[Rfam]
RNA sequence: CCGGAGCUGAUUGUCCAAACGCAAUUCUUGUCCCCAUGUAACAUCAGGAGUUGUGGAUGGACAUCACGCUCUGA
Dot-bracket structure: .((((((((((.(((((..(((((((((((..............)))))))))))..))))))))).)))))).